A. fumigatus sRNA Afu_309: a 289-nucleotide RNA from Clathrospora elynae. The source organism's lineage runs through Eukaryota, Pezizomycotina, dothideomyceta, Dothideomycetes and Clathrospora. Rfam classes the family as a small RNA.
[Rfam]
RNA sequence: UUCUCUUCCCUCAACCACGGCCUGUGUCAGCAUUUCCCGUCCACGUCUUGGGCUCGUCCCUCGGGGUGUGAUGGUUGAAGCGCUGACAGUUCGUCCAUCAGGGAACUUUCUUCUUCGAUAGAUUGUUUCGGACGACAGGUUGGAGAGCAACGCUGGCAGCUUCCAGAAGCCUGAGUUUACCGCAAGGUUUGAGCUCGGUGUAUGGGUUUUGCCAGGCGGACUAAUCCCAAUUCCCUUUUGCUAGGCCGUUGGCCACUGAUGCUCGGGACAAACCUAGUCCGCUACAUCU
Numbered sequence: 001u002u003c004u005c006u007u008c009c010c011u012c013a014a015c016c017a018c019g020g021c022c023u024g025u026g027u028c029a030g031c032a033u034u035u036c037c038c039g040u041c042c043a044c045g046u047c048u049u050g051g052g053c054u055c056g057u058c059c060c061u062c063g064g065g066g067u068g069u070g071a072u073g074g075u076u077g078a079a080g081c082g083c084u085g086a087c088a089g090u091u092c093g094u095c096c097a098u099c100a101g102g103g104a105a106c107u108u109u110c111u112u113c114u115u116c117g118a119u120a121g122a123u124u125g126u127u128u129c130g131g132a133c134g135a136c137a138g139g140u141u142g143g144a145g146a147g148c149a150a151c152g153c154u155g156g157c158a159g160c161u162u163c164c165a166g167a168a169g170c171c172u173g174a175g176u177u178u179a180c181c182g183c184a185a186g187g188u189u190u191g192a193g194c195u196c197g198g199u200g201u202a203u204g205g206g207u208u209u210u211g212c213c214a215g216g217c218g219g220a221c222u223a224a225u226c227c228c229a230a231u232u233c234c235c236u237u238u239u240g241c242u243a244g245g246c247c248g249u250u251g252g253c254c255a256c257u258g259a260u261g262c263u264c265g266g267g268a269c270a271a272a273c274c275u276a277g278u279c280c281g282c283u284a285c286a287u288c289u
Stems, first nucleotide, its partner, number of pairs: 018142008026087006033080004037074005042068003046064002050060002052057001095134001098131002102129002105126002153211001155209001159207004174195006180187002216282008232268004240262002244254004